Shown here is a 63-nucleotide RNA sequence from Ailuropoda melanoleuca, a member of the family "Ma3 gene ribosomal frameshift signal".
Rfam links the family to the GO term translational frameshifting.
RNA sequence: AGGAAAAGAGGAUGGGGCGGGGGAGAUGAGCCCCCCCAAGUCCUCCUCAGGCAAAUAGGCUCA
Numbered sequence: 001a002g003g004a005a006a007a008g009a010g011g012a013u014g015g016g017g018c019g020g021g022g023g024a025g026a027u028g029a030g031c032c033c034c035c036c037c038a039a040g041u042c043c044u045c046c047u048c049a050g051g052c053a054a055a056u057a058g059g060c061u062c063a
Stems, first nucleotide, its partner, number of pairs: 014044005021037003028062005

Description: By type it is a frameshift element. A reference for the family is Wills et al. (2006), "A functional -1 ribosomal frameshift signal in the human paraneoplastic Ma3 gene", J Biol Chem.